[Rfam]
RNA sequence: CGGCGAGGCUUCCUGCCCGUUAUCGAUGGGGGCACUCGGUCACACUGUGGGUGGAAGCAUAAUAUUCCUCCUUAGACGCGAGUCGUCAAAAGUGUGAUGUGAGGGUGGGUUAGAUGCCUU
Numbered sequence: 001c002g003g004c005g006a007g008g009c010u011u012c013c014u015g016c017c018c019g020u021u022a023u024c025g026a027u028g029g030g031g032g033c034a035c036u037c038g039g040u041c042a043c044a045c046u047g048u049g050g051g052u053g054g055a056a057g058c059a060u061a062a063u064a065u066u067c068c069u070c071c072u073u074a075g076a077c078g079c080g081a082g083u084c085g086u087c088a089a090a091a092g093u094g095u096g097a098u099g100u101g102a103g104g105g106u107g108g109g110u111u112a113g114a115u116g117c118c119u120u
Stems, first nucleotide, its partner, number of pairs: 001019003008033006035103004039098008049072003053068004075087004107119004
Record summary
Shown here is a 120-nucleotide RNA from Bacillus sp. MUM 116, a member of the family "epsC RNA". The source organism's lineage runs through Bacteria, Bacillati, Bacilli, Bacillaceae and Bacillus.